[Rfam]
RNA sequence: CAAGGCCCCUGCGACUGACGGGCUGAUGUGGACUUACCACAGGGGAGCAGGGAAUUGGCCUUUUUUGCCGACCGUCUGGGCAGUGUCG
Numbered sequence: 001c002a003a004g005g006c007c008c009c010u011g012c013g014a015c016u017g018a019c020g021g022g023c024u025g026a027u028g029u030g031g032a033c034u035u036a037c038c039a040c041a042g043g044g045g046a047g048c049a050g051g052g053a054a055u056u057g058g059c060c061u062u063u064u065u066u067g068c069c070g071a072c073c074g075u076c077u078g079g080g081c082a083g084u085g086u087c088g
Stems, first nucleotide, its partner, number of pairs: 003056002007052006015044002017076005028040004065083005
RNA: ZMP/ZTP riboswitch aptamer (pfl RNA motif)
Organism: Clostridium sp. CAG:1013